The family of this 137-nucleotide sequence from Brachypodium distachyon is "Small nucleolar RNA snoR77". A reference for the family is Marker et al. (2002), "Experimental RNomics: identification of 140 candidates for small non-messenger RNAs in the plant Arabidopsis thaliana", Curr Biol. Rfam classes the family as an H/ACA-box small nucleolar RNA. Rfam 15.1 lists 649 matches to the family in 221 species.
[Rfam]
RNA sequence: AGGCAGCCCCUUUGUCAAAUUACAAUGGCAAUGGAGGUGUUGCGUUGCUCGAAGAUUAAAUCUUCUGAUCUUCAGAUUGGCUGAGGGGGAUGCUCUGCUUCCCUCCCUGAAGCCGGUCUAGUAGUCUUACGGACAUC
Numbered sequence: 001a002g003g004c005a006g007c008c009c010c011u012u013u014g015u016c017a018a019a020u021u022a023c024a025a026u027g028g029c030a031a032u033g034g035a036g037g038u039g040u041u042g043c044g045u046u047g048c049u050c051g052a053a054g055a056u057u058a059a060a061u062c063u064u065c066u067g068a069u070c071u072u073c074a075g076a077u078u079g080g081c082u083g084a085g086g087g088g089g090a091u092g093c094u095c096u097g098c099u100u101c102c103c104u105c106c107c108u109g110a111a112g113c114c115g116g117u118c119u120a121g122u123a124g125u126c127u128u129a130c131g132g133a134c135a136u137c
Stems, first nucleotide, its partner, number of pairs: 002041004007037002009034002012031006062131001064129001067126003074119005080113003085105006
Dot-bracket structure: .((((.((((.((((((........)))))).)).))))))....................(.(..(((....(((((.(((..((((((.........)))))).....))).)))))....)))..).)......